[Rfam]
Annotation: The family of this 71-nucleotide RNA from Granulicella sibirica is "Fluoride riboswitch aptamer (crcB RNA motif)". The source organism's lineage runs through Bacteria, Pseudomonadati, Acidobacteriota, Terriglobales and Granulicella. Pairs were carried over by alignment from the consensus structure, which is taken from published work.
RNA sequence: CAUAAUCUUGGCGAUGGGGUUCGCCGACGACGCUCGCCCUCCAAGGUGAAGCUGAUGACUCCUACUUACGA
Numbered sequence: 001c002a003u004a005a006u007c008u009u010g011g012c013g014a015u016g017g018g019g020u021u022c023g024c025c026g027a028c029g030a031c032g033c034u035c036g037c038c039c040u041c042c043a044a045g046g047u048g049a050a051g052c053u054g055a056u057g058a059c060u061c062c063u064a065c066u067u068a069c070g071a
Base pairs, nucleotide, nucleotide: 010025011024012023013022016062017061018060019059020058021057032052033051034050